Overview:
TD-2 RNA: a 98-nucleotide RNA from Treponema vincentii. The source organism's lineage runs through Bacteria, Spirochaetota, Spirochaetia, Treponemataceae and Treponema vincentii. Rfam classes the family as a small RNA.
RNA sequence: AGCGGCACGGAUGCCGCUCGUAUUAUGCAGAAGCGAUGUUUCGGCACAGCUGAAACUCGCUGCCAAAAGUGUACACGAAUGUACGCUUUUGGCAAUGU
Numbered sequence: 001a002g003c004g005g006c007a008c009g010g011a012u013g014c015c016g017c018u019c020g021u022a023u024u025a026u027g028c029a030g031a032a033g034c035g036a037u038g039u040u041u042c043g044g045c046a047c048a049g050c051u052g053a054a055a056c057u058c059g060c061u062g063c064c065a066a067a068a069g070u071g072u073a074c075a076c077g078a079a080u081g082u083a084c085g086c087u088u089u090u091g092g093c094a095a096u097g098u
Stems, first nucleotide, its partner, number of pairs: 001018006034059003038056008061094014